The family of this 46-nucleotide RNA from Lacticaseibacillus brantae is "PreQ1 (pre queuosine) riboswitch aptamer". This family is a bacterial riboswitch that binds to the metabolite preQ1, an intermediate in the biosynthesis of the modified nucleoside queuosine from GTP. One example of this riboswitch is located in the leader of the Bacillus subtilis ykvJKLM (queCDEF) operon which encodes four genes necessary for queuosine production. PreQ1 binding to the riboswitch aptamer is thought to induce premature transcription termination within the leader to down-regulate expression of these genes. On this family, see Reader et al., J Biol Chem 2004: "Identification of four genes necessary for biosynthesis of the modified nucleoside queuosine". Gene Ontology term of the family: queuosine biosynthetic process.
Nucleotides: 046
Base pairs, nucleotide, nucleotide: 006028007027008026009025010024016038
Number, partner (000 for none) and nucleotide at each position: 001000a002000c003000c004000c005000u006028u007027g008026u009025g010024g011000u012000u013000c014000g015000a016038a017000a018000u019000u020000c021000c022000g023000c024010c025009c026008a027007c028006a029000a030000u031000a032000a033000a034000a035000a036000a037000c038016u039000a040000g041000g042000a043000g044000g045000c046000a